The family of this 133-nucleotide RNA sequence from Rhizopus azygosporus is "U11 spliceosomal RNA".
It is annotated as a spliceosomal small nuclear RNA.
Pairs were carried over by alignment from the consensus structure, which is taken from published work.
Its Rfam clan is "U1 clan".
[Rfam]
RNA sequence: AAAAAGGGCGCGUCACAGAGCAGUAAUGCCGAUGUGUCGGGAGUGGAUGGUUUGCUCCUGCGGUAUGGAUAUCAAGACAUAUCGCGCGCAUAAUUUUUUGCCCAAGGGAAGCUCGCUUACUUUUGGCUUCGCU
Numbered sequence: 001a002a003a004a005a006g007g008g009c010g011c012g013u014c015a016c017a018g019a020g021c022a023g024u025a026a027u028g029c030c031g032a033u034g035u036g037u038c039g040g041g042a043g044u045g046g047a048u049g050g051u052u053u054g055c056u057c058c059u060g061c062g063g064u065a066u067g068g069a070u071a072u073c074a075a076g077a078c079a080u081a082u083c084g085c086g087c088g089c090a091u092a093a094u095u096u097u098u099u100g101c102c103c104a105a106g107g108g109a110a111g112c113u114c115g116c117u118u119a120c121u122u123u124u125g126g127c128u129u130c131g132c133u
Stems, first nucleotide, its partner, number of pairs: 008089005014036004038060009061084007109133001111132002115128001118126001